[Rfam]
RNA sequence: ACUUAAGAUAGAUAUUAAUAUAUAUCUAUCAUACUAGCCUUGUGCUAGAUUUCCAACUUAACAAAACGGACUUAAAUACCUACAGCUGGUCCUCAUAGGUGUUCCAUUGCAGUGCACUUUAGUGCCCUGGAUGGCACCUGGCCACCUGUCAGGUUUUUGUUAGUAAAAUAACAUUGUUGCUGGUAUCACUGCUUGUUUUG
Numbered sequence: 001a002c003u004u005a006a007g008a009u010a011g012a013u014a015u016u017a018a019u020a021u022a023u024a025u026c027u028a029u030c031a032u033a034c035u036a037g038c039c040u041u042g043u044g045c046u047a048g049a050u051u052u053c054c055a056a057c058u059u060a061a062c063a064a065a066a067c068g069g070a071c072u073u074a075a076a077u078a079c080c081u082a083c084a085g086c087u088g089g090u091c092c093u094c095a096u097a098g099g100u101g102u103u104c105c106a107u108u109g110c111a112g113u114g115c116a117c118u119u120u121a122g123u124g125c126c127c128u129g130g131a132u133g134g135c136a137c138c139u140g141g142c143c144a145c146c147u148g149u150c151a152g153g154u155u156u157u158u159g160u161u162a163g164u165a166a167a168a169u170a171a172c173a174u175u176g177u178u179g180c181u182g183g184u185a186u187c188a189c190u191g192c193u194u195g196u197u198u199u200g
Base pairs, nucleotide, nucleotide: 007030008029009028010027011026012025013024014023015022032185033184034183035182036181037180038179053069054068074157075156076155078154079153080152081151082149083148084147085146087144088143089142090141091140097139098138099137100136101135102134103133106132107131108130110129111128112127114125115124116123117122
Background:
Shown here is a 200-nucleotide sequence from Gammacoronavirus galli, a member of the family "Gammacoronavirus 5'UTR". The literature on the family includes a 2015 paper in Virus Res by Yang and Leibowitz, "The structure and functions of coronavirus genomic 3' and 5' ends". The family is grouped with related families in Rfam's "Coronavirus 5' UTR". Pairs were carried over by alignment from the consensus structure. Its family is annotated with viral RNA genome replication in the Gene Ontology. It is annotated as a cis-regulatory element. Rfam's curators write: The 5' UTR of gammacoronaviruses is similar to the 5' UTRs of alpha- and betacoronaviruses, as they also contain 3 helices denoted as SL1, SL2 and SL4. Further, in a subset of gammacoronaviruses a third stem-loop, SL3, is observed. SL1 and SL2 have major impacts of the level of viral replication, whereas SL4 is hypothesized to play a role as a 'spacer' during the template-switch of CoV sgRNA synthesis.